Rfam assigns this 391-nucleotide sequence from Thiospirillum jenense to the family "Bacterial RNase P class A". Lineage of the source: Bacteria > Pseudomonadota > Chromatiales > Chromatiaceae > Thiospirillum.
RNA sequence: GGAGUUGGUUAGACAGUCGCUGCUGCGCUGCUGCCAGCGUCGGUGGAGGAAAGUCCGGACUUCAUAGGGCAGGGUGCUAGGUAACGCCUAGACGGUGUGAGCCGAUGGAAAGUGCCACAGAGAAUAGACCGCCAACCCCGUUCACUUGACUGAAAUUAAGUAUCGGGCGGCAAGGGUGAAACGGUGCGGUAAGAGCGCACCGCGUGGCUGGCAACAGGCACGGCACGGCAAACCCCACCCGAAGCAAGACCAAAUAGGGAAGCGAUGCGAUGCAAGUCGCGGCAGGUUGCCCGCCUGAGUUUCCGGGUAGGUCGCUUGAGGCGCUCGGUGACGGGUGUCCCAGAUGAAUGACUGUUCACGACAGAAUCCGGCUUAACGACUGACUCCCACU
Numbered sequence: 001g002g003a004g005u006u007g008g009u010u011a012g013a014c015a016g017u018c019g020c021u022g023c024u025g026c027g028c029u030g031c032u033g034c035c036a037g038c039g040u041c042g043g044u045g046g047a048g049g050a051a052a053g054u055c056c057g058g059a060c061u062u063c064a065u066a067g068g069g070c071a072g073g074g075u076g077c078u079a080g081g082u083a084a085c086g087c088c089u090a091g092a093c094g095g096u097g098u099g100a101g102c103c104g105a106u107g108g109a110a111a112g113u114g115c116c117a118c119a120g121a122g123a124a125u126a127g128a129c130c131g132c133c134a135a136c137c138c139c140g141u142u143c144a145c146u147u148g149a150c151u152g153a154a155a156u157u158a159a160g161u162a163u164c165g166g167g168c169g170g171c172a173a174g175g176g177u178g179a180a181a182c183g184g185u186g187c188g189g190u191a192a193g194a195g196c197g198c199a200c201c202g203c204g205u206g207g208c209u210g211g212c213a214a215c216a217g218g219c220a221c222g223g224c225a226c227g228g229c230a231a232a233c234c235c236c237a238c239c240c241g242a243a244g245c246a247a248g249a250c251c252a253a254a255u256a257g258g259g260a261a262g263c264g265a266u267g268c269g270a271u272g273c274a275a276g277u278c279g280c281g282g283c284a285g286g287u288u289g290c291c292c293g294c295c296u297g298a299g300u301u302u303c304c305g306g307g308u309a310g311g312u313c314g315c316u317u318g319a320g321g322c323g324c325u326c327g328g329u330g331a332c333g334g335g336u337g338u339c340c341c342a343g344a345u346g347a348a349u350g351a352c353u354g355u356u357c358a359c360g361a362c363a364g365a366a367u368c369c370g371g372c373u374u375a376a377c378g379a380c381u382g383a384c385u386c387c388c389a390c391u
Stems, first nucleotide, its partner, number of pairs: 001387010012356007020046006026039003051374003055371005060244004067292004072240005077091005092106001093104004107235002112233002114229003129175002131171003136166002183201006202224001203222004208217003248313004258304006283297005320339008
By type it is a ribozyme. It scores 325 bits against the family's covariance model.